[Rfam]
RNA: Small nucleolar RNA Z157/R69/R10
RNA sequence: GAGGUUGCAUUGAUGACAUUAUUGUGGACUAGAGUUUCUGAUUGGGGCUAUUCACCCUAAGUUGACGACAAACCCUUGGCUGUCUGAGCUGUAUU
Numbered sequence: 001g002a003g004g005u006u007g008c009a010u011u012g013a014u015g016a017c018a019u020u021a022u023u024g025u026g027g028a029c030u031a032g033a034g035u036u037u038c039u040g041a042u043u044g045g046g047g048c049u050a051u052u053c054a055c056c057c058u059a060a061g062u063u064g065a066c067g068a069c070a071a072a073c074c075c076u077u078g079g080c081u082g083u084c085u086g087a088g089c090u091g092u093a094u095u
Base pairs, nucleotide, nucleotide: 001095002094004092005091007089008088035067037065038064042060043059044058045057046056047055